[Rfam]
RNA: Bacterial small subunit ribosomal RNA, nucleotides 1 to 542
Organism: Ilyobacter polytropus
RNA sequence: UGAAUGAAGAGUUUGAUCCUGGCUCAGGAUGAACGCUGACAGAAUGCUUAACACAUGCAAGUCGACUGGAAUUCACCUUCGGGUGAUAGUACGGUGGCGGACGGGUGAGUAACGCGUAAAGAACUUGCCCUCUAGACUGGGACAACUGUUGGAAACGACAGCUAAUACCGGAUAUUAUGGAACUGCGGCAUCGCGGAACUAUGAAAGGCUAUAUGCGCUAGAGGAGAGCUUUGCGUCCCAUUAGUUAGUUGGUAGGGUAAUGGCCUACCAAGACGAUGAUGGGUAGCCGGCCUGAGAGGGUGAUCGGCCACAAGGGGACUGAGACACGGCCCUUACUCCUACGGGAGGCAGCAGUGGGGAAUAUUGGACAAUGGACUAAAAGUCUGAUCCAGCAAUUCUGUGUGCACGAUGAAGGUCUUCGGAUCGUAAAGUGCUUUCAGGUGGGAAGAAGAAAGUGACGGUACCACCAGAAGAAGCGACGGCUAAAUACGUGCCAGCAGCCGCGGUAAUACGUAUGUCGCAAGCGUUAUCCGGAAUUAUUG
Numbered sequence: 001u002g003a004a005u006g007a008a009g010a011g012u013u014u015g016a017u018c019c020u021g022g023c024u025c026a027g028g029a030u031g032a033a034c035g036c037u038g039a040c041a042g043a044a045u046g047c048u049u050a051a052c053a054c055a056u057g058c059a060a061g062u063c064g065a066c067u068g069g070a071a072u073u074c075a076c077c078u079u080c081g082g083g084u085g086a087u088a089g090u091a092c093g094g095u096g097g098c099g100g101a102c103g104g105g106u107g108a109g110u111a112a113c114g115c116g117u118a119a120a121g122a123a124c125u126u127g128c129c130c131u132c133u134a135g136a137c138u139g140g141g142a143c144a145a146c147u148g149u150u151g152g153a154a155a156c157g158a159c160a161g162c163u164a165a166u167a168c169c170g171g172a173u174a175u176u177a178u179g180g181a182a183c184u185g186c187g188g189c190a191u192c193g194c195g196g197a198a199c200u201a202u203g204a205a206a207g208g209c210u211a212u213a214u215g216c217g218c219u220a221g222a223g224g225a226g227a228g229c230u231u232u233g234c235g236u237c238c239c240a241u242u243a244g245u246u247a248g249u250u251g252g253u254a255g256g257g258u259a260a261u262g263g264c265c266u267a268c269c270a271a272g273a274c275g276a277u278g279a280u281g282g283g284u285a286g287c288c289g290g291c292c293u294g295a296g297a298g299g300g301u302g303a304u305c306g307g308c309c310a311c312a313a314g315g316g317g318a319c320u321g322a323g324a325c326a327c328g329g330c331c332c333u334u335a336c337u338c339c340u341a342c343g344g345g346a347g348g349c350a351g352c353a354g355u356g357g358g359g360a361a362u363a364u365u366g367g368a369c370a371a372u373g374g375a376c377u378a379a380a381a382g383u384c385u386g387a388u389c390c391a392g393c394a395a396u397u398c399u400g401u402g403u404g405c406a407c408g409a410u411g412a413a414g415g416u417c418u419u420c421g422g423a424u425c426g427u428a429a430a431g432u433g434c435u436u437u438c439a440g441g442u443g444g445g446a447a448g449a450a451g452a453a454a455g456u457g458a459c460g461g462u463a464c465c466a467c468c469a470g471a472a473g474a475a476g477c478g479a480c481g482g483c484u485a486a487a488u489a490c491g492u493g494c495c496a497g498c499a500g501c502c503g504c505g506g507u508a509a510u511a512c513g514u515a516u517g518u519c520g521c522a523a524g525c526g527u528u529a530u531c532c533g534g535a536a537u538u539a540u541u542g
Stems, first nucleotide, its partner, number of pairs: 009025005027532004032528006039401006045394002047358001052356003056353003061098003065095003069090001073086005105311003114236008124228002129224007137171004146161006177202004183196001185194003207216001209215001237283003244274003249271008286308004290301004313334005336347004364391001366390003372386005404434004414425004438473001440468005448459001476521005487516005497504002